[Rfam]
Nucleotides: 074
Base pairs, nucleotide, nucleotide: 011063012062013061014060015059016058020054021053023051024050025049026048028046029045030044
Number, partner (000 for none) and nucleotide at each position: 001000g002000a003000a004000u005000u006000c007000u008000g009000u010000c011063c012062u013061u014060c015059a016058u017000u018000c019000c020054a021053c022000c023051g024050g025049a026048g027000u028046c029045u030044g031000u032000g033000u034000c035000a036000u037000a038000a039000u040000c041000a042000a043000u044030c045029a046028g047000a048026u049025u050024u051023c052000a053021g054020u055000a056000g057000a058016g059015u060014g061013a062012a063011g064000u065000a066000c067000a068000a069000g070000a071000g072000a073000c074000a